This 83-nucleotide RNA from Paraferrimonas sedimenticola belongs to the Rfam family "RpsF leader". Gene Ontology terms of the family: protein binding and negative regulation of translation. The match comes from Rfam's covariance-model search (43 bits). A reference for the family is Matelska et al. (2013), "S6:S18 ribosomal protein complex interacts with a structural motif present in its own mRNA", RNA. Rfam classes the family as a cis-regulatory leader.

RNA sequence: GUCACACAUCUUUAUGUUCCUUGCCUCAAAGUGGUCCGACUGAACCCAGACGAGGCUGAUUAACCCGUAAGGAGCUCUAAAUG
Numbered sequence: 001g002u003c004a005c006a007c008a009u010c011u012u013u014a015u016g017u018u019c020c021u022u023g024c025c026u027c028a029a030a031g032u033g034g035u036c037c038g039a040c041u042g043a044a045c046c047c048a049g050a051c052g053a054g055g056c057u058g059a060u061u062a063a064c065c066c067g068u069a070a071g072g073a074g075c076u077c078u079a080a081a082u083g
Stems, first nucleotide, its partner, number of pairs: 016075007023056005031045002
Conserved and widely distributed to many bacterial species RNA structure. It precedes operon containing rpsF, which encodes ribosomal protein S6. The motif also precedes operon containing rpsR, which encodes ribosomal protein S18. The RNA was shown to interact with S6:S18 protein dimer in vitro.